[Rfam]
RNA sequence: CUUCUCUUCUCACAACAAAACCUGUGUUCAGCGAUCCUGGCGUCUCCUUCGGGGGUCUGUCCGGUUGAUUGCUGUCCAGCUCGACUUUUAUGGAGCCAUCAGAUUAUUGUGAUGUCAAUUUUCCGGUCGACAGAUUUGAGAAGAAUGUGGCCCUGGGACAGCAUCUGAGCUCGCUCCGGCUGAGCUCGAUGUGUAACCUUGGUCAAGAGCGUCAUAUUCCUGAUCCCUUCGCUGAGGCCGUCGGCUUGUGAAGUUGGGGAAAAACCAUGACUUGCUUACAUAU
Numbered sequence: 001c002u003u004c005u006c007u008u009c010u011c012a013c014a015a016c017a018a019a020a021c022c023u024g025u026g027u028u029c030a031g032c033g034a035u036c037c038u039g040g041c042g043u044c045u046c047c048u049u050c051g052g053g054g055g056u057c058u059g060u061c062c063g064g065u066u067g068a069u070u071g072c073u074g075u076c077c078a079g080c081u082c083g084a085c086u087u088u089u090a091u092g093g094a095g096c097c098a099u100c101a102g103a104u105u106a107u108u109g110u111g112a113u114g115u116c117a118a119u120u121u122u123c124c125g126g127u128c129g130a131c132a133g134a135u136u137u138g139a140g141a142a143g144a145a146u147g148u149g150g151c152c153c154u155g156g157g158a159c160a161g162c163a164u165c166u167g168a169g170c171u172c173g174c175u176c177c178g179g180c181u182g183a184g185c186u187c188g189a190u191g192u193g194u195a196a197c198c199u200u201g202g203u204c205a206a207g208a209g210c211g212u213c214a215u216a217u218u219c220c221u222g223a224u225c226c227c228u229u230c231g232c233u234g235a236g237g238c239c240g241u242c243g244g245c246u247u248g249u250g251a252a253g254u255u256g257g258g259g260a261a262a263a264a265c266c267a268u269g270a271c272u273u274g275c276u277u278a279c280a281u282a283u
Stems, first nucleotide, its partner, number of pairs: 018137003022133004026077001029074003033070004037064004044055004085129001087126002091117003095113001097111001152202002155199003162191004167187006173180002208276003211271005224260005231254003236246004

The family of this 283-nucleotide RNA from Aureobasidium namibiae is "A. fumigatus sRNA Afu_309". Pairs were carried over by alignment from the consensus structure, which was predicted with WAR. A reference for the family is Jochl et al. (2008), "Small ncRNA transcriptome analysis from Aspergillus fumigatus suggests a novel mechanism for regulation of protein synthesis", Nucleic Acids Res. Lineage of the source: Eukaryota > Fungi > Dothideomycetidae > Dothideales > Aureobasidium namibiae. The family's RNA type in Rfam is small RNA.